[Rfam]
RNA: Small nucleolar RNA SNORD21
Organism: Zosterops borbonicus
RNA sequence: GCUACAUGAUGAUACUUGCAGUGACUGAUCACACUGUAGUUGGUCCAUGGUGUGUAUUUGAUGUACUGCAGCGUUUCAAGACGGGACUGAUGGCAGC
Numbered sequence: 001g002c003u004a005c006a007u008g009a010u011g012a013u014a015c016u017u018g019c020a021g022u023g024a025c026u027g028a029u030c031a032c033a034c035u036g037u038a039g040u041u042g043g044u045c046c047a048u049g050g051u052g053u054g055u056a057u058u059u060g061a062u063g064u065a066c067u068g069c070a071g072c073g074u075u076u077c078a079a080g081a082c083g084g085g086a087c088u089g090a091u092g093g094c095a096g097c
Base pairs, nucleotide, nucleotide: 001094002093003092004091